[Rfam]
mir-193 microRNA precursor family: a 75-nucleotide sequence from Ornithorhynchus anatinus. For this family Rfam cites "Small RNA expression and strain specificity in the rat" (Linsen et al., BMC Genomics, 2010). The family's consensus secondary structure was predicted with RNAalifold. NCBI's taxonomy places the organism under Eukaryota, Eumetazoa, Vertebrata, Dipnotetrapodomorpha, Ornithorhynchus.

RNA sequence: UUCCAGAGUCGGGGUUUUGAGGGCGAGAUGAGUUUGUGUUUUAUCCAACUGGCCCACAAAGUCCCGCUUUUGGUG
Numbered sequence: 001u002u003c004c005a006g007a008g009u010c011g012g013g014g015u016u017u018u019g020a021g022g023g024c025g026a027g028a029u030g031a032g033u034u035u036g037u038g039u040u041u042u043a044u045c046c047a048a049c050u051g052g053c054c055c056a057c058a059a060a061g062u063c064c065c066g067c068u069u070u071u072g073g074u075g
Stems, first nucleotide, its partner, number of pairs: 003073006010066004015061005021055004026050002029047002